A member of the RNA family "rpsB sRNA" from Pararhodospirillum photometricum, 94 nucleotides long. The family has 4 seed sequences and 245 matches in Rfam 15.1. On this family, see Meyer et al., BMC Genomics 2009: "Identification of candidate structured RNAs in the marine organism 'Candidatus Pelagibacter ubique'". Rfam classes the family as a small RNA. Taxonomically the source falls in Pararhodospirillum photometricum (Bacteria, Pseudomonadati, Rhodospirillaceae, Pararhodospirillum).

RNA sequence: CGCACGCGGGGAGUCGCGGCCUCACGGCCGAUCCGGUGUCUGGACCUUGUCCGACCAAUCCCCCGCGGAGGAUAAACCGGAAAACAGGAAAGUU
Numbered sequence: 001c002g003c004a005c006g007c008g009g010g011g012a013g014u015c016g017c018g019g020c021c022u023c024a025c026g027g028c029c030g031a032u033c034c035g036g037u038g039u040c041u042g043g044a045c046c047u048u049g050u051c052c053g054a055c056c057a058a059u060c061c062c063c064c065g066c067g068g069a070g071g072a073u074a075a076a077c078c079g080g081a082a083a084a085c086a087g088g089a090a091a092g093u094u
Base pairs, nucleotide, nucleotide: 001070003068005067006066007065008064009063010062011061017030018029019028038055039054040053